[Rfam]
RNA sequence: GGAACAGGCCUUUCAGGCAUCCUCUCCCAAAGACUUUCCAAGGGCCGGUCAUCGCGAUCGGCCCUUUUUUUGUCUGGAU
Numbered sequence: 001g002g003a004a005c006a007g008g009c010c011u012u013u014c015a016g017g018c019a020u021c022c023u024c025u026c027c028c029a030a031a032g033a034c035u036u037u038c039c040a041a042g043g044g045c046c047g048g049u050c051a052u053c054g055c056g057a058u059c060g061g062c063c064c065u066u067u068u069u070u071u072g073u074c075u076g077g078a079u
Stems, first nucleotide, its partner, number of pairs: 008018004042064009
A member of the RNA family "Makes More Granules Regulator RNA (mmgR)" from Novosphingobium sp. Rr 2-17, 79 nucleotides long. From the family's description: SuhB later renamed mmgR (makes more granules regulator) was a putative non-coding RNA found multiple times in the Agrobacterium tumefaciens genome and related alpha-proteobacteria. It is annotated as a small RNA.